[Rfam]
RNA sequence: GUUGCGGCGGUCUCUAAUUCGCUUGGUGCAGGUCGGGAACGACUUCGGCGACGGCGAUUGGCCUGCUGGGGGCCGAAUUAGAUCCCGCCUUGCAUCAACUGAAUCGGAUCUCGCCGUGAAU
Numbered sequence: 001g002u003u004g005c006g007g008c009g010g011u012c013u014c015u016a017a018u019u020c021g022c023u024u025g026g027u028g029c030a031g032g033u034c035g036g037g038a039a040c041g042a043c044u045u046c047g048g049c050g051a052c053g054g055c056g057a058u059u060g061g062c063c064u065g066c067u068g069g070g071g072g073c074c075g076a077a078u079u080a081g082a083u084c085c086c087g088c089c090u091u092g093c094a095u096c097a098a099c100u101g102a103a104u105c106g107g108a109u110c111u112c113g114c115c116g117u118g119a120a121u
Stems, first nucleotide, its partner, number of pairs: 013108002017104004023098010034087005040081001